This 53-nucleotide RNA sequence from Ixodes scapularis belongs to the Rfam family "Guanidine-II riboswitch aptamer (mini-ykkC)". Lineage of the source: Eukaryota > Protostomia > Chelicerata > Acari > Ixodes. Simpler in structure and has fewer highly conserved nucleotide positions than the ykkC-yxkD leader. On this family, see Weinberg et al., Nucleic Acids Res 2007: "Identification of 22 candidate structured RNAs in bacteria using the CMfinder comparative genomics pipeline".
RNA sequence: CCUAGAGGACGACCUCUAGGACGACCUCAACGACGACUUUGAGGACGACCUCA
Numbered sequence: 001c002c003u004a005g006a007g008g009a010c011g012a013c014c015u016c017u018a019g020g021a022c023g024a025c026c027u028c029a030a031c032g033a034c035g036a037c038u039u040u041g042a043g044g045a046c047g048a049c050c051u052c053a
Stems, first nucleotide, its partner, number of pairs: 001020008040053005